This 117-nucleotide RNA sequence from Chelativorans petroleitrophicus belongs to the Rfam family "ALIL pseudoknot". By type it is a cis-regulatory element. The source organism's lineage runs through Bacteria, Pseudomonadati, Pseudomonadota, Hyphomicrobiales and Chelativorans. A reference for the family is Mazauric et al. (2008), "Apical loop-internal loop RNA pseudoknots: a new type of stimulator of -1 translational frameshifting in bacteria", J Biol Chem.
RNA sequence: GGCUUAUUUUGCGAUGGCGGAGCUCGACCGCCCACUGAAGCGAUGAUCGCCUUUAUCGACGCUCACCGCGAUGCGUACGGGGUCGAGCCGAUCUGCCGUGUGCUGCCGAUCGCCCCG
Numbered sequence: 001g002g003c004u005u006a007u008u009u010u011g012c013g014a015u016g017g018c019g020g021a022g023c024u025c026g027a028c029c030g031c032c033c034a035c036u037g038a039a040g041c042g043a044u045g046a047u048c049g050c051c052u053u054u055a056u057c058g059a060c061g062c063u064c065a066c067c068g069c070g071a072u073g074c075g076u077a078c079g080g081g082g083u084c085g086a087g088c089c090g091a092u093c094u095g096c097c098g099u100g101u102g103c104u105g106c107c108g109a110u111c112g113c114c115c116c117g
Base pairs, nucleotide, nucleotide: 016032017031018030019029020028078117079116080115081114082113089112090111092109093108095106096105098103